Shown here is a 64-nucleotide sequence, a member of the family "RAGATH-18 RNA". It is annotated as a small RNA. The sequence is in the family's curated seed alignment.
RNA sequence: CCUUUGGAGUGUCCUAUCAAACAUAAGUAGAUUUAUAUCGAAAAUGGACACGGUGAACAAGGAA
Numbered sequence: 001c002c003u004u005u006g007g008a009g010u011g012u013c014c015u016a017u018c019a020a021a022c023a024u025a026a027g028u029a030g031a032u033u034u035a036u037a038u039c040g041a042a043a044a045u046g047g048a049c050a051c052g053g054u055g056a057a058c059a060a061g062g063a064a
Base pairs, nucleotide, nucleotide: 001062002061003060004059009051010050011049012048013047022046023045024044030039031038032037